Rfam assigns this 110-nucleotide RNA from Labedella populi to the family "TPP riboswitch aptamer (THI element)".

[Rfam]
RNA sequence: GUGAAUGAACACGGGAGUCCGGUGAGCCGGGCUGAGAGGAAGGUCCUCAACCUUCGACCGUCGAACCUGAUCUGGGUCAUGCCAGCGCAGGGAGUCUGACAUCUCAUUAC
Dot-bracket structure: .....((.((((((..(((((......)))))......(((((.......)))))..))))....((((..((((......))))..))))..)).))............